[Rfam]
RNA sequence: GAAAUGAAAUGAGUUCUUUCUCAUAUAUGCUUAGGAAUAUGGCCUAAGCGUUUCUACCAGGAAACCGUAAAUUUCCCGGCUAUGAGAAAAAUCUCGUUUGGG
Numbered sequence: 001g002a003a004a005u006g007a008a009a010u011g012a013g014u015u016c017u018u019u020c021u022c023a024u025a026u027a028u029g030c031u032u033a034g035g036a037a038u039a040u041g042g043c044c045u046a047a048g049c050g051u052u053u054c055u056a057c058c059a060g061g062a063a064a065c066c067g068u069a070a071a072u073u074u075c076c077c078g079g080c081u082a083u084g085a086g087a088a089a090a091a092u093c094u095c096g097u098u099u100g101g102g
Stems, first nucleotide, its partner, number of pairs: 018088008029049007058078001060076005

This 102-nucleotide sequence from Lihuaxuella thermophila belongs to the Rfam family "Purine riboswitch aptamer". The base pairs follow the family's consensus structure, which is taken from published work.